[Rfam]
RNA sequence: AGAUACCCGAGAUGCCUGCUGACAACGUCAGCGACAUGCCCAGGUAGCCGCGAUCUUCAAGGCUGCGGCGCGGUUUCGACCGCGUUGAUCGUUCCAGUUCGCACCGCAUCCCACGCGCGAACAUCCAUCGUUUUCGAUGGAGGAUGC
Numbered sequence: 001a002g003a004u005a006c007c008c009g010a011g012a013u014g015c016c017u018g019c020u021g022a023c024a025a026c027g028u029c030a031g032c033g034a035c036a037u038g039c040c041c042a043g044g045u046a047g048c049c050g051c052g053a054u055c056u057u058c059a060a061g062g063c064u065g066c067g068g069c070g071c072g073g074u075u076u077c078g079a080c081c082g083c084g085u086u087g088a089u090c091g092u093u094c095c096a097g098u099u100c101g102c103a104c105c106g107c108a109u110c111c112c113a114c115g116c117g118c119g120a121a122c123a124u125c126c127a128u129c130g131u132u133u134u135c136g137a138u139g140g141a142g143g144a145u146g147c
Base pairs, nucleotide, nucleotide: 012037013036014035015033018032019031020030021029022028023027044066045065046064047063048062049061052090053089054088055087067086068085069084070083071082072081073080117147118146119145124141125140126139127138128137129136130135

Annotation:
The family of this 147-nucleotide sequence from Thioalkalivibrio sulfidiphilus is "radC RNA". Taxonomically the source falls in Thioalkalivibrio sulfidiphilus (Bacteria, Pseudomonadota, Gammaproteobacteria, Thioalkalivibrio). Pairs were carried over by alignment from the consensus structure, which is taken from published work.